[Rfam]
Nucleotides: 080
Stems, first nucleotide, its partner, number of pairs: 001080004006076001
Number, partner (000 for none) and nucleotide at each position: 001080u002079u003078g004077u005000u006076g007000g008000g009000u010000g011000a012000u013000g014000a015000a016000a017000c018000a019000a020000a021000u022000c023000a024000u025000u026000c027000g028000g029000a030000u031000u032000c033000c034000c035000a036000c037000u038000g039000a040000u041000u042000u043000g044000u045000a046000c047000a048000a049000a050000a051000a052000u053000g054000a055000u056000a057000u058000u059000u060000u061000a062000c063000c064000a065000g066000c067000u068000a069000c070000u071000u072000c073000u074000g075000a076006c077004a078003c079002a080001a